The family of this 56-nucleotide RNA from Myxococcus xanthus is "L17-Actino-Proteobacteria ribosomal protein leader".
A reference for the family is Eckert and Weinberg (2020), "Discovery of 20 novel ribosomal leader candidates in bacteria and archaea", BMC Microbiol.
Rfam's curators put it in the seed alignment.
The base pairs follow the family's consensus structure, which is taken from published work.
The family's RNA type in Rfam is cis-regulatory leader.
RNA sequence: GCGGGCCUCGUGCCGGGUCCGCCCAUCCCACCCGGUACCUGAUACGGCCGGAGUGG
Numbered sequence: 001g002c003g004g005g006c007c008u009c010g011u012g013c014c015g016g017g018u019c020c021g022c023c024c025a026u027c028c029c030a031c032c033c034g035g036u037a038c039c040u041g042a043u044a045c046g047g048c049c050g051g052a053g054u055g056g
Base pairs, nucleotide, nucleotide: 001022002021003020004019005018006017007016008015028056029055030054032051033050034049035048036047